[Rfam]
Nucleotides: 107
Base pairs, nucleotide, nucleotide: 045100046099047098048097049096061088062087063086064085065084066083067082068081
Number, partner (000 for none) and nucleotide at each position: 001000g002000u003000g004000c005000c006000a007000u008000a009000g010000g011000g012000a013000u014000g015000a016000a017000c018000a019000g020000g021000u022000c023000c024000g025000g026000a027000g028000g029000u030000c031000c032000c033000u034000g035000a036000c037000a038000u039000g040000c041000u042000g043000u044000a045100c046099c047098a048097u049096u050000a051000a052000a053000u054000u055000u056000a057000c058000u059000u060000u061088g062087u063086c064085a065084g066083c067082u068081g069000a070000u071000c072000u073000u074000a075000u076000g077000u078000g079000u080000a081068c082067a083066g084065c085064u086063g087062a088061u089000c090000a091000u092000u093000a094000u095000g096049g097048a098047u099046g100045g101000g102000a103000a104000a105000u106000u107000u
The family of this 107-nucleotide sequence from Paspalum vaginatum is "Small nucleolar RNA snoR99". It scores 62 bits against the family's covariance model.